[Rfam]
Annotation: The family of this 67-nucleotide sequence from Cnephaeus nilssonii is "mir-9256 microRNA precursor family". The match comes from Rfam's covariance-model search (80 bits).

RNA sequence: CAGUACACUGAGUGGCCAGAUUAUUAUGAUAUUUGAAUGCAUAAUAAUCUGGCCACUCAUUGUAUAU
Dot-bracket structure: ...((((.(((((((((.((((((((((...........)))))))))).))))))))).))))...